RNA sequence: UUUGGAUCAAUGAUGAUUAGAUUAAUUACUGCGUUAUCUUUCUAGAAUUUCCAGAUUAUAUGGGAUUGAAGAAGAUUUUUCUAACUGAGAUCCAAU
Numbered sequence: 001u002u003u004g005g006a007u008c009a010a011u012g013a014u015g016a017u018u019a020g021a022u023u024a025a026u027u028a029c030u031g032c033g034u035u036a037u038c039u040u041u042c043u044a045g046a047a048u049u050u051c052c053a054g055a056u057u058a059u060a061u062g063g064g065a066u067u068g069a070a071g072a073a074g075a076u077u078u079u080u081c082u083a084a085c086u087g088a089g090a091u092c093c094a095a096u
Stems, first nucleotide, its partner, number of pairs: 002095006
The family of this 96-nucleotide RNA from Capsicum baccatum is "Small nucleolar RNA snoR27". It is annotated as a C/D-box small nucleolar RNA. It scores 64 bits against the family's covariance model. On this family, see Brown et al., RNA 2001: "Multiple snoRNA gene clusters from Arabidopsis".